This 110-nucleotide sequence belongs to the Rfam family "drum RNA". Rfam classes the family as a small RNA. It is one of the family's seed sequences. Pairs were carried over by alignment from the consensus structure, which is taken from published work.

RNA sequence: CAGCGUUGAAGCAGGUGAUGGGGUCAGCAUCCGUACACCUGUGGAGCUUUGAAUGAGGGUUCGGCGGUUCCCACAGGCUGACGUAGGUUUUCCGAAUGAAAACGCCAUUU
Numbered sequence: 001c002a003g004c005g006u007u008g009a010a011g012c013a014g015g016u017g018a019u020g021g022g023g024u025c026a027g028c029a030u031c032c033g034u035a036c037a038c039c040u041g042u043g044g045a046g047c048u049u050u051g052a053a054u055g056a057g058g059g060u061u062c063g064g065c066g067g068u069u070c071c072c073a074c075a076g077g078c079u080g081a082c083g084u085a086g087g088u089u090u091u092c093c094g095a096a097u098g099a100a101a102a103c104g105c106c107a108u109u110u
Stems, first nucleotide, its partner, number of pairs: 002048003011042007018034004024081004064105003086093002